Rfam assigns this 154-nucleotide RNA sequence from Psilopogon haemacephalus to the family "Small nucleolar RNA SNORD97". Rfam links the family to the GO terms RNA processing and nucleolus. By type it is a C/D-box small nucleolar RNA. The source organism's lineage runs through Eukaryota, Opisthokonta, Dipnotetrapodomorpha, Neognathae and Psilopogon. The base pairs follow the family's consensus structure, which was predicted with WAR.
RNA sequence: UUGCCCAAUGAUUAUAGCAAGACGCGUUAUUAUGAGGACUAAUGCUGGAACUCCUUCCUCUUCUCCUCUUUUGUCCCUUCCUCUUUCACCUUACCCCCUUCAUUUUCCUUAGGGUAUCCAGCGUCCUAUGAGCAAGACUCAGAUAUGAGGGCAA
Numbered sequence: 001u002u003g004c005c006c007a008a009u010g011a012u013u014a015u016a017g018c019a020a021g022a023c024g025c026g027u028u029a030u031u032a033u034g035a036g037g038a039c040u041a042a043u044g045c046u047g048g049a050a051c052u053c054c055u056u057c058c059u060c061u062u063c064u065c066c067u068c069u070u071u072u073g074u075c076c077c078u079u080c081c082u083c084u085u086u087c088a089c090c091u092u093a094c095c096c097c098c099u100u101c102a103u104u105u106u107c108c109u110u111a112g113g114g115u116a117u118c119c120a121g122c123g124u125c126c127u128a129u130g131a132g133c134a135a136g137a138c139u140c141a142g143a144u145a146u147g148a149g150g151g152c153a154a
Stems, first nucleotide, its partner, number of pairs: 001154006035055004040049001